[Rfam]
RNA sequence: GUGCCGAUGGCAGUGCCAUUCCCAGAGCUGUAACAGUGUCCUUGGCAUAGCUCUGGGAAUGGCACUGCCAUAAGCAC
Numbered sequence: 001g002u003g004c005c006g007a008u009g010g011c012a013g014u015g016c017c018a019u020u021c022c023c024a025g026a027g028c029u030g031u032a033a034c035a036g037u038g039u040c041c042u043u044g045g046c047a048u049a050g051c052u053c054u055g056g057g058a059a060u061g062g063c064a065c066u067g068c069c070a071u072a073a074g075c076a077c
Base pairs, nucleotide, nucleotide: 002076003075004074007071008070009069011067012066013065015063016062017061018060019059020058021057024054025053026052027051028050029049030048031047
Rfam assigns this 77-nucleotide sequence from Pachycephala philippinensis to the family "mir-458 microRNA precursor family". Its family is annotated with miRNA-mediated post-transcriptional gene silencing and RISC complex in the Gene Ontology. Pairs were carried over by alignment from the consensus structure, which was predicted with RNAalifold.